[Rfam]
Nucleotides: 105
Base pairs, nucleotide, nucleotide: 001105002104003103004102005101006100007099008098013041015040016039017038021031022030023029026076027075028074042069043068044067045066047065048064050061051060052059053058073097078094079093080092081091082090083089
Number, partner (000 for none) and nucleotide at each position: 001105a002104c003103c004102u005101u006100a007099u008098u009000a010000a011000g012000a013041g014000a015040g016039g017038u018000g019000g020000a021031g022030g023029g024000a025000c026076a027075g028074g029023c030022c031021c032000u033000g034000u035000g036000a037000a038017a039016c040015c041013c042069a043068g044067c045066a046000a047065c048064c049000a050061u051060u052059c053058c054000g055000a056000a057000u058053g059052g060051a061050a062000a063000a064048g065047g066045u067044g068043c069042u070000a071000a072000u073097u074028c075027c076026u077000a078094c079093a080092a081091g082090a083089u084000g085000u086000u087000a088000u089083a090082u091081c092080u093079u094078g095000a096000a097073a098008g099007a100006u101005g102004a103003g104002g105001u